[Rfam]
RNA sequence: AAGCAUACCUUGCCUGGCUCUACUCAUGGCUAGGCAGGGCAGGGGCGAUAGUAUAUGCAAAAGUAAUUGGAGUUUAUGCUAACUCUAACCUGUUUAGUCAGUAACUGGGUAAACUGCAGUACUUGAACAUUC
Numbered sequence: 001a002a003g004c005a006u007a008c009c010u011u012g013c014c015u016g017g018c019u020c021u022a023c024u025c026a027u028g029g030c031u032a033g034g035c036a037g038g039g040c041a042g043g044g045g046c047g048a049u050a051g052u053a054u055a056u057g058c059a060a061a062a063g064u065a066a067u068u069g070g071a072g073u074u075u076a077u078g079c080u081a082a083c084u085c086u087a088a089c090c091u092g093u094u095u096a097g098u099c100a101g102u103a104a105c106u107g108g109g110u111a112a113a114c115u116g117c118a119g120u121a122c123u124u125g126a127a128c129a130u131u132c
Stems, first nucleotide, its partner, number of pairs: 008039009070124003074121001077118003089108002092105002
RNA: Small nucleolar RNA SNORA58